[Rfam]
RNA sequence: UUCUGAUUGAAUGGAUAACUGUUAGUAUCAUAUUUUGAUUGGACGUGAAUAAUAACAAUACAUUUUCAUCAUUUAUAGAGUUAACAUUCAGUCAGAACUUGUCACGUGGUGAUCAUCAUCA
Numbered sequence: 001u002u003c004u005g006a007u008u009g010a011a012u013g014g015a016u017a018a019c020u021g022u023u024a025g026u027a028u029c030a031u032a033u034u035u036u037g038a039u040u041g042g043a044c045g046u047g048a049a050u051a052a053u054a055a056c057a058a059u060a061c062a063u064u065u066u067c068a069u070c071a072u073u074u075a076u077a078g079a080g081u082u083a084a085c086a087u088u089c090a091g092u093c094a095g096a097a098c099u100u101g102u103c104a105c106g107u108g109g110u111g112a113u114c115a116u117c118a119u120c121a
Stems, first nucleotide, its partner, number of pairs: 021110004025105002029101002033097004038092003
RNA: MIR1520 microRNA precursor family
Organism: Glycine soja